Source information: MIR2629 microRNA precursor family: a 69-nucleotide sequence from Medicago truncatula. Gene Ontology terms of the family: miRNA-mediated post-transcriptional gene silencing and RISC complex. A search with the family's covariance model found it, with a score of 74 bits.

[Rfam]
RNA sequence: UACCAAAGUUUUCCUCGGUAGUUAACUGCAGUCGAUUCCAUAAUUCGGCAGUUAACUACUGAGGAACAU
Numbered sequence: 001u002a003c004c005a006a007a008g009u010u011u012u013c014c015u016c017g018g019u020a021g022u023u024a025a026c027u028g029c030a031g032u033c034g035a036u037u038c039c040a041u042a043a044u045u046c047g048g049c050a051g052u053u054a055a056c057u058a059c060u061g062a063g064g065a066a067c068a069u
Base pairs, nucleotide, nucleotide: 012065013064015062016061017060018059019058020057021056022055023054024053025052026051027050028049029048